[Rfam]
RNA sequence: UAACCAUCCAGAGCGGCUGAGAGAUCUGGCUCCAAGACGCCGCAGCAACCCGCGCUUAAAAGCGUAAGGUGCUCCAGCCAGAACGAUGGAAG
Numbered sequence: 001u002a003a004c005c006a007u008c009c010a011g012a013g014c015g016g017c018u019g020a021g022a023g024a025u026c027u028g029g030c031u032c033c034a035a036g037a038c039g040c041c042g043c044a045g046c047a048a049c050c051c052g053c054g055c056u057u058a059a060a061a062g063c064g065u066a067a068g069g070u071g072c073u074c075c076a077g078c079c080a081g082a083a084c085g086a087u088g089g090a091a092g
Stems, first nucleotide, its partner, number of pairs: 001092001004089005013043005021032003026081004044073004049069002052065004077084001
Shown here is a 92-nucleotide RNA from Actinomyces graevenitzii, a member of the family "SAM riboswitch aptamer (S box leader)". The organism belongs to Actinomyces graevenitzii, within Bacteria. The match comes from Rfam's covariance-model search (58 bits).